[Rfam]
Nucleotides: 066
Base pairs, nucleotide, nucleotide: 012063013024025049026048027047029045030044031043050062051061052060
Number, partner (000 for none) and nucleotide at each position: 001000a002000u003000a004000a005000u006000g007000a008000u009000a010000c011000u012063u013024c014000a015000a016000u017000a018000g019000u020000u021000u022000a023000a024013g025049c026048u027047g028000c029045c030044u031043c032000g033000u034000c035000u036000g037000g038000a039000a040000u041000a042000a043031g044030g045029g046000g047027c048026a049025g050062a051061g052060g053000u054000g055000a056000g057000a058000u059000u060052c061051c062050u063012a064000u065000g066000u